[Rfam]
RNA sequence: UUCAGGUACGGCGACAUGGUGCCAAAAACUAUCGUGGGGAAGGUUUUUGGGUCCAUUUGCUCUCUGAGUGGGGUGCUGGUCAUCGCCUUGCCGGUCCCCGUGAUAGUGUCAAAC
Numbered sequence: 001u002u003c004a005g006g007u008a009c010g011g012c013g014a015c016a017u018g019g020u021g022c023c024a025a026a027a028a029c030u031a032u033c034g035u036g037g038g039g040a041a042g043g044u045u046u047u048u049g050g051g052u053c054c055a056u057u058u059g060c061u062c063u064c065u066g067a068g069u070g071g072g073g074u075g076c077u078g079g080u081c082a083u084c085g086c087c088u089u090g091c092c093g094g095u096c097c098c099c100g101u102g103a104u105a106g107u108g109u110c111a112a113a114c
Base pairs, nucleotide, nucleotide: 002113005110007108008107009106011104014101015100018097019096021095022094037077038076040074049063050062051061